[Rfam]
RNA sequence: GUGGGCUACGGAGAUAUGUGCCCAAUCACCCCAGGGGGCAAGAUUGUGGGCACUCUGUGCGCCAUUGCGGGAGUUCUCACCAUUGCUCUCCCUGUGCCAGUCAUUGUGUCCAAC
Numbered sequence: 001g002u003g004g005g006c007u008a009c010g011g012a013g014a015u016a017u018g019u020g021c022c023c024a025a026u027c028a029c030c031c032c033a034g035g036g037g038g039c040a041a042g043a044u045u046g047u048g049g050g051c052a053c054u055c056u057g058u059g060c061g062c063c064a065u066u067g068c069g070g071g072a073g074u075u076c077u078c079a080c081c082a083u084u085g086c087u088c089u090c091c092c093u094g095u096g097c098c099a100g101u102c103a104u105u106g107u108g109u110c111c112a113a114c
Stems, first nucleotide, its partner, number of pairs: 001114002004111002007108005013102003018097004037077002040074001049063003
RNA: Potassium channel RNA editing signal
Organism: Octodon degus